A member of the RNA family "FMN riboswitch aptamer (RFN element)" from Bacillus sp. PK3_68, 142 nucleotides long.
RNA sequence: UGUAUCCUUCGGGGCGGGGUGAAAUUCCCCACCGGCGGUGAUGAGCAAUGGCUCUUAGUCCGUGACCCGCGUUCGUUUGAAAGCGGUGGAUUCGGUGAAAUUCCGAAGCCGACAGUGAAAGUCUGGAUGGGAGAAGGAUGAG
Numbered sequence: 001u002g003u004a005u006c007c008u009u010c011g012g013g014g015c016g017g018g019g020u021g022a023a024a025u026u027c028c029c030c031a032c033c034g035g036c037g038g039u040g041a042u043g044a045g046c047a048a049u050g051g052c053u054c055u056u057a058g059u060c061c062g063u064g065a066c067c068c069g070c071g072u073u074c075g076u077u078u079g080a081a082a083g084c085g086g087u088g089g090a091u092u093c094g095g096u097g098a099a100a101u102u103c104c105g106a107a108g109c110c111g112a113c114a115g116u117g118a119a120a121g122u123c124u125g126g127a128u129g130g131g132a133g134a135a136g137g138a139u140g141a142g
Stems, first nucleotide, its partner, number of pairs: 003140008017029003031122002033111002035063004058109002067086002091107005113125003
Record summary
The match comes from Rfam's covariance-model search (121 bits).